Notes:
The record is an 85-nucleotide RNA sequence from Cohnella sp. OV330, which matches "ZMP/ZTP riboswitch aptamer (pfl RNA motif)" in Rfam. The family's consensus secondary structure is taken from published work.
[Rfam]
RNA sequence: AAAACCGCAUGCGACUGGCGAGAUCAGUGGAAUCGACCACGAGGGAGCAUGCGGCGGGACCCUUCCGUUCGCCUGGGAGAAAAGG
Number, nucleotide and partner (000 for none) at each position: 001a000002a000003a000004a000005c054006c053007g052008c051009a050010u049011g048012c047013g000014a000015c044016u043017g073018g072019c071020g070021a069022g000023a000024u000025c000026a000027g040028u039029g038030g037031a000032a000033u000034c000035g000036a000037c030038c029039a028040c027041g000042a000043g016044g015045g000046a000047g012048c011049a010050u009051g008052c007053g006054g005055c000056g000057g000058g000059a000060c000061c000062c000063u079064u078065c077066c076067g000068u000069u021070c020071g019072c018073c017074u000075g000076g066077g065078a064079g063080a000081a000082a000083a000084g000085g000